[Rfam]
RNA sequence: CCUGCGCAGCACGUCUCUGUGCUACAGGUCGGGAUGUGAUCCGCGGGGCAUGGCCCCGGUCGGGAUUGAACCAGAAA
Numbered sequence: 001c002c003u004g005c006g007c008a009g010c011a012c013g014u015c016u017c018u019g020u021g022c023u024a025c026a027g028g029u030c031g032g033g034a035u036g037u038g039a040u041c042c043g044c045g046g047g048g049c050a051u052g053g054c055c056c057c058g059g060u061c062g063g064g065a066u067u068g069a070a071c072c073a074g075a076a077a
Stems, first nucleotide, its partner, number of pairs: 001028004031072002038067005